raiA-hairpin RNA: a 48-nucleotide sequence from Streptomyces hundungensis. Pairs were carried over by alignment from the consensus structure, which is taken from published work. NCBI's taxonomy places the organism under Bacteria, Actinomycetota, Kitasatosporales, Streptomycetaceae, Streptomyces.
[Rfam]
RNA sequence: CACCGAGUCCGACGCCCCGGCACUCACCGGGGUCUGGUGCAAAAGGGA
Numbered sequence: 001c002a003c004c005g006a007g008u009c010c011g012a013c014g015c016c017c018c019g020g021c022a023c024u025c026a027c028c029g030g031g032g033u034c035u036g037g038u039g040c041a042a043a044a045g046g047g048a
Stems, first nucleotide, its partner, number of pairs: 014033007